[Rfam]
RNA: Bacterial large subunit ribosomal RNA, nucleotides 2745 to 3006
RNA sequence: GGAAACUUGAGGGGAACUGCUCCUAGUACGAGAGGACCGGAGCAGGCGGACCUCUGGUGUACCAGUUGUGCCGUCAGGUGCAGGAGCUGGGUAGCCAAGUCCGCACGGGAUAAGCGCUGAAAGCAUCUAAGCGCGAAGCCCACCCCAAGAUAAGGUUUCCCACGGGGAAAGCCCGGUAAGGCACCUCCGAGAAGAGGAGGUAGAUAGGCCGGAGGUGGAAGCGCAGCAAUGCGUGGAGCCGACCGGUACUAAUAUGCCGAGG
Numbered sequence: 001g002g003a004a005a006c007u008u009g010a011g012g013g014g015a016a017c018u019g020c021u022c023c024u025a026g027u028a029c030g031a032g033a034g035g036a037c038c039g040g041a042g043c044a045g046g047c048g049g050a051c052c053u054c055u056g057g058u059g060u061a062c063c064a065g066u067u068g069u070g071c072c073g074u075c076a077g078g079u080g081c082a083g084g085a086g087c088u089g090g091g092u093a094g095c096c097a098a099g100u101c102c103g104c105a106c107g108g109g110a111u112a113a114g115c116g117c118u119g120a121a122a123g124c125a126u127c128u129a130a131g132c133g134c135g136a137a138g139c140c141c142a143c144c145c146c147a148a149g150a151u152a153a154g155g156u157u158u159c160c161c162a163c164g165g166g167g168a169a170a171g172c173c174c175g176g177u178a179a180g181g182c183a184c185c186u187c188c189g190a191g192a193a194g195a196g197g198a199g200g201u202a203g204a205u206a207g208g209c210c211g212g213a214g215g216u217g218g219a220a221g222c223g224c225a226g227c228a229a230u231g232c233g234u235g236g237a238g239c240c241g242a243c244c245g246g247u248a249c250u251a252a253u254a255u256g257c258c259g260a261g262g
Base pairs, nucleotide, nucleotide: 001160002159003158004157005156006155007154008153011146012145013144014143017045018044019043020042021041022040023039046104047103048102049101050100051099055097056096057095062090063089064088065087066086067082068081069080070079071078072077107141108140109139114134115133116132117131118130163175164174165173177260180258181257182256183255184200185199186198187197188196205251206250207249208247209246210245211244212243214240215239221234222233223232224231225230